[Rfam]
RNA sequence: UGGCAAUGAUGAUACAAUUAAGGCUUGUUUCUCUAAACAUUUGCAGUUGCUGCCUAAGAGCUUUCGCCCAGCCAGGCUUGAGAGCUAAUGCUGCUAAUUCCUUCCUUGGAUGCCUGAGCCU
Numbered sequence: 001u002g003g004c005a006a007u008g009a010u011g012a013u014a015c016a017a018u019u020a021a022g023g024c025u026u027g028u029u030u031c032u033c034u035a036a037a038c039a040u041u042u043g044c045a046g047u048u049g050c051u052g053c054c055u056a057a058g059a060g061c062u063u064u065c066g067c068c069c070a071g072c073c074a075g076g077c078u079u080g081a082g083a084g085c086u087a088a089u090g091c092u093g094c095u096a097a098u099u100c101c102u103u104c105c106u107u108g109g110a111u112g113c114c115u116g117a118g119c120c121u
Stems, first nucleotide, its partner, number of pairs: 002120003060085006
Rfam assigns this 121-nucleotide sequence from Triticum aestivum to the family "Small nucleolar RNA SNORD14". From the family's description: U14 small nucleolar RNA (U14 snoRNA) is required for early cleavages of eukaryotic precursor rRNAs. In yeasts, this molecule possess a stem-loop region (known as the Y-domain) which is essential for function. A similar structure, but with a different consensus sequence, is found in plants, but is absent in vertebrates. It is annotated as a C/D-box small nucleolar RNA. A reference for the family is Samarsky et al. (1996), "An essential domain in Saccharomyces cerevisiae U14 snoRNA is absent in vertebrates, but conserved in other yeasts", Nucleic Acids Res. Taxonomically the source falls in Triticum (Eukaryota, Magnoliopsida, Poales, Poaceae).